[Rfam]
RNA sequence: UGGCGCCCAACGGUGUGGCUUCAGAUAUGGGGGAAUUCAUGAGGGAAGAGGCAUCUAAGUGUCCGGACGAAGGAAAAAAAUAGUGAAAGUUAAAGUCAGUUCGACAAAUUUCGCCACGGGAGCCUGCUGUGCCGUUCUUAAAAGUACAGUAGCGCCUAACUAUGGGACAAGAAUUAAGUAAGCAUAAAGGUUUUGUUAAGCAAUUAACAGAAGCUUUAAAGACACGGGGAGUAAAGGUUAAGGGUAAUGAUCUUUUUAAGUUUUUUGACCUUAUUAAGGACACCUGUCCAU
Number, nucleotide and partner (000 for none) at each position: 001u000002g000003g000004c000005g000006c033007c032008c031009a000010a000011c000012g000013g028014u027015g026016u000017g000018g000019c000020u000021u000022c000023a000024g000025a000026u015027a014028u013029g000030g000031g008032g007033g006034a000035a000036u000037u000038c000039a000040u049041g000042a000043g000044g000045g000046a000047a000048g000049a040050g000051g000052c000053a000054u000055c000056u000057a000058a000059g000060u000061g000062u000063c000064c000065g000066g000067a000068c000069g000070a000071a000072g000073g000074a000075a000076a000077a000078a000079a000080a000081u000082a000083g000084u000085g000086a000087a000088a000089g000090u000091u000092a000093a000094a000095g000096u000097c144098a000099g000100u142101u141102c000103g000104a000105c000106a000107a000108a000109u000110u000111u000112c134113g000114c000115c131116a130117c129118g128119g127120g000121a000122g000123c000124c000125u000126g000127c119128u118129g117130u116131g115132c000133c000134g112135u000136u000137c000138u000139u000140a000141a101142a100143a000144g097145u000146a000147c000148a000149g000150u170151a000152g168153c000154g000155c166156c165157u164158a163159a000160c000161u000162a000163u158164g157165g156166g155167a000168c152169a000170a150171g000172a000173a000174u000175u218176a217177a216178g214179u213180a000181a000182g000183c000184a000185u000186a000187a000188a000189g000190g000191u000192u000193u000194u000195g000196u000197u000198a000199a000200g000201c000202a000203a000204u000205u000206a000207a000208c000209a000210g000211a000212a000213g179214c178215u000216u177217u176218a175219a000220a000221g000222a000223c000224a000225c267226g266227g265228g264229g263230a262231g261232u260233a000234a000235a253236g252237g251238u250239u249240a248241a000242g000243g000244g000245u000246a000247a000248u240249g239250a238251u237252c236253u235254u000255u000256u000257u000258a000259a000260g232261u231262u230263u229264u228265u227266u226267g225268a000269c000270c000271u000272u000273a000274u000275u000276a291277a000278g289279g288280a287281c286282a000283c000284c000285u000286g281287u280288c279289c278290a000291u276
Annotation
Mason-Pfizer monkey virus packaging signal: a 291-nucleotide RNA sequence from Sciurus vulgaris. Pairs were carried over by alignment from the consensus structure, which was predicted with PFOLD. Rfam's curators write: This family represents a group of sequences that are related to the Mason-Pfizer monkey virus (MPMV) packaging signal. The source organism's lineage runs through Eukaryota, Eumetazoa, Gnathostomata, Boreoeutheria and Sciurus. Rfam links the family to the GO term viral genome packaging.